Annotation: The record is a 91-nucleotide sequence from Flavobacterium bizetiae, which matches "Flavo-1 RNA" in Rfam. Lineage of the source: Bacteria > Flavobacteriia > Flavobacteriales > Flavobacteriaceae > Flavobacterium. Rfam classes the family as a small RNA. It scores 71 bits against the family's covariance model. Pairs were carried over by alignment from the consensus structure, which is taken from published work.
[Rfam]
RNA sequence: CCCUAGCCCCGAUAGAAGAGGAAAUCCUUUUGUGUCCGUCCCGAUAGCUAUCGGGAGGCACAAAAGAUUGUAACGGAUAGCGGGAUCAGCU
Numbered sequence: 001c002c003c004u005a006g007c008c009c010c011g012a013u014a015g016a017a018g019a020g021g022a023a024a025u026c027c028u029u030u031u032g033u034g035u036c037c038g039u040c041c042c043g044a045u046a047g048c049u050a051u052c053g054g055g056a057g058g059c060a061c062a063a064a065a066g067a068u069u070g071u072a073a074c075g076g077a078u079a080g081c082g083g084g085a086u087c088a089g090c091u
Base pairs, nucleotide, nucleotide: 009083010082011081013079014078018074023069024068025067026066029064030063031062032061033060034059035058036057